Shown here is a 72-nucleotide RNA from Krasilnikovia cinnamomea, a member of the family "tRNA". NCBI's taxonomy places the organism under Bacteria, Bacillati, Actinomycetota, Micromonosporaceae, Krasilnikovia.
RNA sequence: UCGGCCGUGGUGAAAUGGGCAUCACCUUCGGUUUUGGUCCGAAAGUUCCGGGUUCGAGUCCUGGCGGCCGAG
Numbered sequence: 001u002c003g004g005c006c007g008u009g010g011u012g013a014a015a016u017g018g019g020c021a022u023c024a025c026c027u028u029c030g031g032u033u034u035u036g037g038u039c040c041g042a043a044a045g046u047u048c049c050g051g052g053u054u055c056g057a058g059u060c061c062u063g064g065c066g067g068c069c070g071a072g
Stems, first nucleotide, its partner, number of pairs: 001071007010025004027043005048064005